[Rfam]
RNA sequence: UGCAGCUGCGUCAAAUUCGGUCCUUGUCCAGCCCUGCGCUGGGGACCGGCCAAACAGCUGCCACAGCAACAACCCCUGUAGCUCAUGGGCCCCACUGUUGUUCUCCCUCAACCCUGGGGAUAAAUAAAUGCUGCAGACAUUG
Numbered sequence: 001u002g003c004a005g006c007u008g009c010g011u012c013a014a015a016u017u018c019g020g021u022c023c024u025u026g027u028c029c030a031g032c033c034c035u036g037c038g039c040u041g042g043g044g045a046c047c048g049g050c051c052a053a054a055c056a057g058c059u060g061c062c063a064c065a066g067c068a069a070c071a072a073c074c075c076c077u078g079u080a081g082c083u084c085a086u087g088g089g090c091c092c093c094a095c096u097g098u099u100g101u102u103c104u105c106c107c108u109c110a111a112c113c114c115u116g117g118g119g120a121u122a123a124a125u126a127a128a129u130g131c132u133g134c135a136g137a138c139a140u141u142g
Stems, first nucleotide, its partner, number of pairs: 002061004018048009028038001078134005083128001090119005

Shown here is a 142-nucleotide RNA sequence from Chrysolophus pictus, a member of the family "Small nucleolar RNA SNORA5".
The family's consensus secondary structure was predicted with RNAfold.
The family's RNA type in Rfam is H/ACA-box small nucleolar RNA.
Rfam's curators write: ACA5 is a member of the H/ACA class of snoRNA that guide the sites of modification of uridines to pseudouridines.
Gene Ontology terms of the family: RNA processing and nucleolus.
Lineage of the source: Eukaryota > Metazoa > Eumetazoa > Phasianidae > Chrysolophus.
The match comes from Rfam's covariance-model search (72 bits).